[Rfam]
RNA: SAM riboswitch aptamer (S box leader)
Organism: Micrococcus sp. HMSC067E09
RNA sequence: CACCCAUCCAGAGCGGCCGAGAGAUCUGGCUCGACGACGCCGCAGCAACCAGCCCGCCGACCCCGGACUCACGGGAACGGCAGGCCCGGUGCUACCGCCAGGAACGAUGGAGG
Numbered sequence: 001c002a003c004c005c006a007u008c009c010a011g012a013g014c015g016g017c018c019g020a021g022a023g024a025u026c027u028g029g030c031u032c033g034a035c036g037a038c039g040c041c042g043c044a045g046c047a048a049c050c051a052g053c054c055c056g057c058c059g060a061c062c063c064c065g066g067a068c069u070c071a072c073g074g075g076a077a078c079g080g081c082a083g084g085c086c087c088g089g090u091g092c093u094a095c096c097g098c099c100a101g102g103a104a105c106g107a108u109g110g111a112g113g
Stems, first nucleotide, its partner, number of pairs: 001113001004110005013043005021032003026101004044093004049089002052085003097105001